nadA riboswitch: a 54-nucleotide sequence.
The family's consensus secondary structure is taken from published work.
A reference for the family is Chen et al. (2020), "Structural distinctions between NAD+ riboswitch domains 1 and 2 determine differential folding and ligand binding", Nucleic Acids Res.
[Rfam]
RNA sequence: AGCUUCAACAUCCCCGUAGGUCGGGCGCGCAAGCGUAGUGGAUCUACUGGAGCC
Numbered sequence: 001a002g003c004u005u006c007a008a009c010a011u012c013c014c015c016g017u018a019g020g021u022c023g024g025g026c027g028c029g030c031a032a033g034c035g036u037a038g039u040g041g042a043u044c045u046a047c048u049g050g051a052g053c054c
Stems, first nucleotide, its partner, number of pairs: 002053006013040001014038001016047007023039001025036004